[Rfam]
tRNA: a 70-nucleotide RNA from Patiria pectinifera. Transfer RNA (tRNA) molecules are approximately 80 nucleotides in length. Their secondary structure includes four short double-helical elements and three loops (D, anti-codon, and T loops). Further hydrogen bonds mediate the characteristic L-shaped molecular structure. tRNAs have two regions of fundamental functional importance: the anti-codon, which is responsible for specific mRNA codon recognition, and the 3' end, to which the tRNAs corresponding amino acid is attached (by aminoacyl-tRNA synthetases). tRNAs cope with the degeneracy of the genetic code in two manners: having more than one tRNA (with a specific anti-codon) for a particular amino acid; and 'wobble' base-pairing, i.e. permitting non-standard base-pairing at the 3rd anti-codon position.
RNA sequence: GAUUGGGUGGCAGAUAGGGAUGCGAUAGAUUGUAAAUCUAGGUAGGAAGGUUCAAGUCCUUUCCUGGUCA
Dot-bracket structure: (((((((..(((........)))..((((.......)))).....(((((.......)))))))))))).